This 121-nucleotide sequence from Thorsellia anophelis belongs to the Rfam family "Alpha operon ribosome binding site". Rfam describes the family as follows. The bacterial alpha operon ribosome binding site is surrounded by this complex pseudoknotted structure. Translation of the mRNA produces 4 ribosomal protein products, one of which (S4) acts as a translational repressor by binding to the nested pseudoknot region. The mechanism of repression is thought to involve a conformational switch in the pseudoknot region and ribosome entrapment. It scores 87 bits against the family's covariance model. By type it is a cis-regulatory element. Its family is annotated with ribosome binding in the Gene Ontology. The source organism's lineage runs through Bacteria, Gammaproteobacteria, Thorselliaceae, Thorsellia and Thorsellia anophelis.
Nucleotides: 121
Stems, first nucleotide, its partner, number of pairs: 006054008024105003032096004040120003
Number, partner (000 for none) and nucleotide at each position: 001000u002000a003000g004000u005000g006054a007053c008052a009051g010050c011049u012048a013047a014000a015000c016000u017000u018000g019000a020000g021000u022000a023000u024105c025104c026103u027000g028000a029000a030000a031000a032096c033095g034094g035093g036000c037000u038000u039000u040120u041119c042118a043000g044000a045000g046000u047013u048012u049011a050010g051009c052008u053007g054006u055000a056000u057000a058000u059000u060000u061000u062000u063000u064000u065000a066000u067000a068000u069000u070000a071000a072000a073000u074000u075000u076000u077000a078000a079000g080000g081000a082000g083000u084000g085000c086000a087000c088000a089000g090000u091000g092000g093035c094034c095033c096032g097000u098000a099000u100000u101000g102000c103026a104025g105024g106000c107000a108000u109000a110000a111000a112000c113000a114000u115000u116000c117000c118042u119041g120040a121000c